Shown here is an 81-nucleotide RNA from Vitis rotundifolia, a member of the family "Small nucleolar RNA R160". On this family, see Chen et al., Nucleic Acids Res 2003: "The high diversity of snoRNAs in plants: identification and comparative study of 120 snoRNA genes from Oryza sativa". It is annotated as a C/D-box small nucleolar RNA. Rfam 15.1 lists 799 matches to the family in 221 species.
[Rfam]
RNA sequence: AGCAAAAUGAUGAGGUAGUGAGAUCUGAAAUUGAUGUGGAAAGUGAGAGAAUAAUAUGGUCUUCAAAGUUCUCUGAUUGCU
Numbered sequence: 001a002g003c004a005a006a007a008u009g010a011u012g013a014g015g016u017a018g019u020g021a022g023a024u025c026u027g028a029a030a031u032u033g034a035u036g037u038g039g040a041a042a043g044u045g046a047g048a049g050a051a052u053a054a055u056a057u058g059g060u061c062u063u064c065a066a067a068g069u070u071c072u073c074u075g076a077u078u079g080c081u
Stems, first nucleotide, its partner, number of pairs: 001081005